[Rfam]
RNA sequence: ACCGCAUGAAAGACAUGGGUAGUGAGAUGUUCGCUUUUGCCUUACAUCUCAUUACGGUGUCUUCCGCCCGGUU
Dot-bracket structure: .......(.((((((...(.(((((((((...............))))))))).)..)))))).)........
Rfam assigns this 73-nucleotide RNA sequence from Tigriopus californicus to the family "mir-71 microRNA precursor family".
For this family Rfam cites "Direct sequencing and expression analysis of a large number of miRNAs in Aedes aegypti and a multi-species survey of novel mosquito miRNAs" (Li et al., BMC Genomics, 2009).
The family's consensus secondary structure was predicted with RNAalifold.
Rfam links the family to the GO terms miRNA-mediated post-transcriptional gene silencing and RISC complex.
The match comes from Rfam's covariance-model search (52 bits).
Rfam 15.1 lists 372 matches to the family in 291 species.